[Rfam]
RNA sequence: AAUCGUUAAUUUACGGCGUAUUAAUCUUUCGCGUUUAUGACUGAGCUUGUCCUUGUUUGGACACCGAGUGGCUCCUGUCACUCUGUUUGACGCCUCCCUGUUAUCAACUUUCAAAAGCCGCCGGUUUCCGGCGGCUCUUUUUUU
Numbered sequence: 001a002a003u004c005g006u007u008a009a010u011u012u013a014c015g016g017c018g019u020a021u022u023a024a025u026c027u028u029u030c031g032c033g034u035u036u037a038u039g040a041c042u043g044a045g046c047u048u049g050u051c052c053u054u055g056u057u058u059g060g061a062c063a064c065c066g067a068g069u070g071g072c073u074c075c076u077g078u079c080a081c082u083c084u085g086u087u088u089g090a091c092g093c094c095u096c097c098c099u100g101u102u103a104u105c106a107a108c109u110u111u112c113a114a115a116a117g118c119c120g121c122c123g124g125u126u127u128c129c130g131g132c133g134g135c136u137c138u139u140u141u142u143u144u
Base pairs, nucleotide, nucleotide: 003044004043005042006016007015017039018038022037023036024035026033049062050061051060052059066083067082068081069080070079089102090101091100092099113139114138116136117135118134119133120132121131122130123129
Alphaproteobacterial sRNA BjrC1505: a 144-nucleotide sequence from Bradyrhizobiaceae bacterium SG-6C. The base pairs follow the family's consensus structure. For this family Rfam cites "Small RNAs of the Bradyrhizobium/Rhodopseudomonas lineage and their analysis" (Madhugiri et al., RNA Biol, 2012). Rfam's curators put it in the seed alignment. Rfam classes the family as a small RNA.